[Rfam]
Shown here is a 195-nucleotide RNA from Arachis hypogaea, a member of the family "MIR159 microRNA precursor family". On this family, see Jones-Rhoades and Bartel, Mol Cell 2004: "Computational identification of plant microRNAs and their targets, including a stress-induced miRNA". The organism belongs to Arachis, within Eukaryota. The base pairs follow the family's consensus structure, which was predicted with WAR. The family has 66 seed sequences and 3,649 matches in Rfam 15.1.
RNA sequence: AAACUCAAGUUGGGACUCCCUUACUCCAAGUCUAAAAAGAAGUGAUGGUGAUCUUAGCUGCUAAUUCAUGAAAACCUAUAACUUCGCAUUAAAAGAUAAAUAUUCGCGAAGAUUACGGGUCUGCAUGAAUUUGGAGAUAAUGAUUACUUUAAUCUUUUUUGUAUUGGGGUGAAGGGAGCUCCACAUAGAAUAUUU
Numbered sequence: 001a002a003a004c005u006c007a008a009g010u011u012g013g014g015a016c017u018c019c020c021u022u023a024c025u026c027c028a029a030g031u032c033u034a035a036a037a038a039g040a041a042g043u044g045a046u047g048g049u050g051a052u053c054u055u056a057g058c059u060g061c062u063a064a065u066u067c068a069u070g071a072a073a074a075c076c077u078a079u080a081a082c083u084u085c086g087c088a089u090u091a092a093a094a095g096a097u098a099a100a101u102a103u104u105c106g107c108g109a110a111g112a113u114u115a116c117g118g119g120u121c122u123g124c125a126u127g128a129a130u131u132u133g134g135a136g137a138u139a140a141u142g143a144u145u146a147c148u149u150u151a152a153u154c155u156u157u158u159u160u161g162u163a164u165u166g167g168g169g170u171g172a173a174g175g176g177a178g179c180u181c182c183a184c185a186u187a188g189a190a191u192a193u194u195u
Stems, first nucleotide, its partner, number of pairs: 013181002016178005022171007035158001058136002061133001063131001067127004075119001